The family of this 72-nucleotide RNA from Enterobacteriaceae bacterium strain FGI 57 is "Nucleoid-associated noncoding RNA 4 (CssrE)".
[Rfam]
RNA sequence: GGCCGGAUAAGGCGUUUACGCCGCCAUCCGGCAUCUGCGCACAAUGCCCGGUGGCGCUGCGCUUACCGGGCC
Numbered sequence: 001g002g003c004c005g006g007a008u009a010a011g012g013c014g015u016u017u018a019c020g021c022c023g024c025c026a027u028c029c030g031g032c033a034u035c036u037g038c039g040c041a042c043a044a045u046g047c048c049c050g051g052u053g054g055c056g057c058u059g060c061g062c063u064u065a066c067c068g069g070g071c072c
Base pairs, nucleotide, nucleotide: 002032003031004030005029006028007027008026011022012021013020014019046071047070048069049068050067051066052065053064054062055061056060

Annotation
The literature on the family includes a 2011 paper in PLoS One by Peng et al., "An integrated approach for finding overlooked genes in Shigella". Rfam links the family to the GO terms bacterial nucleoid, bacterial nucleoid DNA packaging and protein binding. It scores 61 bits against the family's covariance model. About the family: In E. coli small RNA transcribed from repeated extragenic palindromic element (REP325) called nucleoid-associated ncRNA 4 (nRNA4) collaborates HU protein in condensing the DNA. The secondary structure but not the sequence of the RNA is important in nucleoid condensation. Also identified in Shigella as CssrE. Taxonomically the source falls in Enterobacteriaceae (Bacteria, Pseudomonadati, Pseudomonadota, Gammaproteobacteria).